[Rfam]
Shown here is a 102-nucleotide RNA from Dichanthelium oligosanthes, a member of the family "MIR2275 microRNA precursor family". NCBI's taxonomy places the organism under Eukaryota, Viridiplantae, Euphyllophyta, Petrosaviidae, Dichanthelium. Rfam links the family to the GO terms miRNA-mediated post-transcriptional gene silencing and RISC complex. It scores 70 bits against the family's covariance model.
RNA sequence: GCACUGAAAGUGAGAGUUGGAGGAACGCAAACUGAUUGAUUCAAGGCCAAAAACAUCAUCACUGAAUCAGGUUGUUUUUCUCCAAUAUCUCACCUUCAGUUG
Numbered sequence: 001g002c003a004c005u006g007a008a009a010g011u012g013a014g015a016g017u018u019g020g021a022g023g024a025a026c027g028c029a030a031a032c033u034g035a036u037u038g039a040u041u042c043a044a045g046g047c048c049a050a051a052a053a054c055a056u057c058a059u060c061a062c063u064g065a066a067u068c069a070g071g072u073u074g075u076u077u078u079u080c081u082c083c084a085a086u087a088u089c090u091c092a093c094c095u096u097c098a099g100u101u102g
Stems, first nucleotide, its partner, number of pairs: 004099005011092004016086006023079003027075004032070005
Dot-bracket structure: ...(((((..((((.((((((.(((.((((.(((((.............................))))).)))).))).))))))..))))..)))))...